[Rfam]
RNA sequence: AGACCACAGGACAGCGUGGGUGGGCUGUGCUCCUAUUUAUGGUAGGGCCAAGCCCAGGAAAGUCCCCGGGCCUCUUUCCGCAGAGAUGCGGCCUUGGAAACGAGUGAGCUUCGAGCGUGGGAGUCCAUCUCGCAUUCAGUGUGAAAGGGCUGAGACAAGUGUGGAGCCUUUGGACCCUCGCCGAAGUAGAUUGGCCGAUUACACAGUUAUUCACGCGGUCCAUUGGACCAACUGAACGGGGCUUACGAUCUUGUGGUC
Numbered sequence: 001a002g003a004c005c006a007c008a009g010g011a012c013a014g015c016g017u018g019g020g021u022g023g024g025c026u027g028u029g030c031u032c033c034u035a036u037u038u039a040u041g042g043u044a045g046g047g048c049c050a051a052g053c054c055c056a057g058g059a060a061a062g063u064c065c066c067c068g069g070g071c072c073u074c075u076u077u078c079c080g081c082a083g084a085g086a087u088g089c090g091g092c093c094u095u096g097g098a099a100a101c102g103a104g105u106g107a108g109c110u111u112c113g114a115g116c117g118u119g120g121g122a123g124u125c126c127a128u129c130u131c132g133c134a135u136u137c138a139g140u141g142u143g144a145a146a147g148g149g150c151u152g153a154g155a156c157a158a159g160u161g162u163g164g165a166g167c168c169u170u171u172g173g174a175c176c177c178u179c180g181c182c183g184a185a186g187u188a189g190a191u192u193g194g195c196c197g198a199u200u201a202c203a204c205a206g207u208u209a210u211u212c213a214c215g216c217g218g219u220c221c222a223u224u225g226g227a228c229c230a231a232c233u234g235a236a237c238g239g240g241g242c243u244u245a246c247g248a249u250c251u252u253g254u255g256g257u258c
Stems, first nucleotide, its partner, number of pairs: 002258010014216006022055004027048002030045002033042003060244003064241004079090004093104004108187003115181003119177002135174004147169004157162001218228004

The family of this 258-nucleotide RNA from Camellia sinensis is "RNase MRP". NCBI's taxonomy places the organism under Eukaryota, Embryophyta, Spermatophyta, Ericales, Camellia. Rfam links the family to the GO terms ribonuclease MRP complex, ribonuclease MRP activity and rRNA processing. Rfam's curators write: RNase MRP is an enzymatically active ribonucleoprotein with two distinct roles in eukaryotes. In mitochondria it plays a direct role in the initiation of mitochondrial DNA replication. A search with the family's covariance model found it, with a score of 71 bits.